[Rfam]
RNA sequence: AGCGGGGUAGAGGAAUUGGUCAACUCAUCAGGCUCAUGACCUGAAGACUGCAGGUUCGAAUCCUGUCCCCGCCU
Numbered sequence: 001a002g003c004g005g006g007g008u009a010g011a012g013g014a015a016u017u018g019g020u021c022a023a024c025u026c027a028u029c030a031g032g033c034u035c036a037u038g039a040c041c042u043g044a045a046g047a048c049u050g051c052a053g054g055u056u057c058g059a060a061u062c063c064u065g066u067c068c069c070c071g072c073c074u
Stems, first nucleotide, its partner, number of pairs: 002072006010026003028044005050066005
RNA: tRNA